The family of this 91-nucleotide sequence from Ectothiorhodospira magna is "t44 RNA". For this family Rfam cites "Transcriptome analysis of Escherichia coli using high-density oligonucleotide probe arrays" (Tjaden et al., Nucleic Acids Res, 2002). The match comes from Rfam's covariance-model search (76 bits). It is annotated as a small RNA.
RNA sequence: CCGACCUUUUCCAAAAUCCACACAUGCGCCGACACGUGCAGCGGGGUGCCCUGUCAAAGGGGUUGCUGUUCGGGGCGUAUGGAGGCUCAAC
Numbered sequence: 001c002c003g004a005c006c007u008u009u010u011c012c013a014a015a016a017u018c019c020a021c022a023c024a025u026g027c028g029c030c031g032a033c034a035c036g037u038g039c040a041g042c043g044g045g046g047u048g049c050c051c052u053g054u055c056a057a058a059g060g061g062g063u064u065g066c067u068g069u070u071c072g073g074g075g076c077g078u079a080u081g082g083a084g085g086c087u088c089a090a091c
Stems, first nucleotide, its partner, number of pairs: 023081008035072002038069006048063005